Rfam assigns this 84-nucleotide RNA from Lates calcarifer to the family "mir-181 microRNA precursor family". The match comes from Rfam's covariance-model search (76 bits).
[Rfam]
RNA sequence: UCGCCCCAGUGAACAUUCAACGCUGUCGGUGAGUUUGAGCUAAAUUGAAAAAACCAUCGACCGUUGAUUGUACCCUGUGGCCAG
Numbered sequence: 001u002c003g004c005c006c007c008a009g010u011g012a013a014c015a016u017u018c019a020a021c022g023c024u025g026u027c028g029g030u031g032a033g034u035u036u037g038a039g040c041u042a043a044a045u046u047g048a049a050a051a052a053a054c055c056a057u058c059g060a061c062c063g064u065u066g067a068u069u070g071u072a073c074c075c076u077g078u079g080g081c082c083a084g
Stems, first nucleotide, its partner, number of pairs: 001084001003082001004080002007077002014070002017067006025061007033054004
Overview:
NCBI's taxonomy places the organism under Eukaryota, Chordata, Gnathostomata, Neoteleostei, Lates.